[Rfam]
RNA sequence: AAUUAAGGUAGAGGCUGCGGUUCUUAAGAGUAUUCAUAAUGAGGUAAGCGCAAUGAAGUAUGAAGAAAGGAAUAACCGCCGAAGGCUAUAACUGAAGCUUUAAGGUUAUAGACCUGGGGGUGUAUAGAAGAUAUGCAUCACUGUCACAAAUGCAAAUUUGUGUUGAGCUACAUUUAAG
Numbered sequence: 001a002a003u004u005a006a007g008g009u010a011g012a013g014g015c016u017g018c019g020g021u022u023c024u025u026a027a028g029a030g031u032a033u034u035c036a037u038a039a040u041g042a043g044g045u046a047a048g049c050g051c052a053a054u055g056a057a058g059u060a061u062g063a064a065g066a067a068a069g070g071a072a073u074a075a076c077c078g079c080c081g082a083a084g085g086c087u088a089u090a091a092c093u094g095a096a097g098c099u100u101u102a103a104g105g106u107u108a109u110a111g112a113c114c115u116g117g118g119g120g121u122g123u124a125u126a127g128a129a130g131a132u133a134u135g136c137a138u139c140a141c142u143g144u145c146a147c148a149a150a151u152g153c154a155a156a157u158u159u160g161u162g163u164u165g166a167g168c169u170a171c172a173u174u175u176a177a178g
Stems, first nucleotide, its partner, number of pairs: 006173001008171004017079006024072002033064006040057001083115003086111008116142002119139008145162006
Dot-bracket structure: .....(.((((.....((((((.((.......((((((.(................).))))))......)).))))))...(((((((((((..........)))))))).)))((.((((((((.....)))))))).))..((((((......)))))).....)))).).....